[Rfam]
RNA: c-di-AMP riboswitch aptamer (ydaO/yuaA leader)
Organism: Clostridium tyrobutyricum
RNA sequence: AUAUUGAAAGCGCUUAAUCAAUUAUGAACGGGAGAACCACUUUUGGGGUGAAUCUUGUAUUAAAACAAGUAGGGUUAAUUUCUUCGAUCCGAAUCCGUCAGCUAAUCUCGUAAGCGUUGAAGAGAAGUUUU
Numbered sequence: 001a002u003a004u005u006g007a008a009a010g011c012g013c014u015u016a017a018u019c020a021a022u023u024a025u026g027a028a029c030g031g032g033a034g035a036a037c038c039a040c041u042u043u044u045g046g047g048g049u050g051a052a053u054c055u056u057g058u059a060u061u062a063a064a065a066c067a068a069g070u071a072g073g074g075u076u077a078a079u080u081u082c083u084u085c086g087a088u089c090c091g092a093a094u095c096c097g098u099c100a101g102c103u104a105a106u107c108u109c110g111u112a113a114g115c116g117u118u119g120a121a122g123a124g125a126a127g128u129u130u131u
Stems, first nucleotide, its partner, number of pairs: 011116004018027003028111006038045002046096003054069004072090004